[Rfam]
RNA sequence: GUUACAGGACGACCUGUAAACGCUAUUCUCACCGGGGACGGCCCC
Numbered sequence: 001g002u003u004a005c006a007g008g009a010c011g012a013c014c015u016g017u018a019a020a021c022g023c024u025a026u027u028c029u030c031a032c033c034g035g036g037g038a039c040g041g042c043c044c045c
Stems, first nucleotide, its partner, number of pairs: 002019007034045004

A member of the RNA family "Guanidine-II riboswitch aptamer (mini-ykkC)" from Salmonella enterica, 45 nucleotides long. Rfam describes the family as follows. Simpler in structure and has fewer highly conserved nucleotide positions than the ykkC-yxkD leader. On this family, see Sherlock et al., Biochemistry 2017: "Biochemical Validation of a Second Guanidine Riboswitch Class in Bacteria".